Shown here is a 270-nucleotide RNA sequence from Pediculus humanus, a member of the family "Metazoan signal recognition particle RNA". Rfam's curators write: The signal recognition particle (SRP) is a universally conserved ribonucleoprotein. It is involved in the co-translational targeting of proteins to membranes. The eukaryotic SRP consists of a 300-nucleotide 7S RNA and six proteins: SRPs 72, 68, 54, 19, 14, and 9. It scores 107 bits against the family's covariance model. Lineage of the source: Eukaryota > Metazoa > Hexapoda > Troctomorpha > Pediculus humanus.

RNA sequence: GCCGGGAGUGGUGGUGUACUCCUGUAAUCCAACUACUUAAAGGCUGGGUAUAGAGGAUGUUUUUAGGGCGGGGAUUCUGGGAUUGGAUUUUGCACGUUGACUAGGUAUCCGCUAGGGGUUAAGCUACAGCUUGGAUACCUUUGGGGAGCCUGAGGUAGCCAGGUUGAGUCUGGAAAGGAGAAAAAUCGGACCAAAAAUCUCACCGAGUUGAAAACCUGGGAGUGGGAAUUCAAUUUCAGCUCGCUCAAACAAGAACAGACCUGUACCUAC
Dot-bracket structure: ((((((((((......)))))))....(............)))).((((((((....(((((((.(((((((....(((((((((((((.(.(((.(...((((((.((..((...(((.(.(...((((((((.((((((.((....)).)))))).))))))))(...)........((....))..........).).))).))..).).))))))).))).))))))))))))))))))))).)...))))))...))))))))..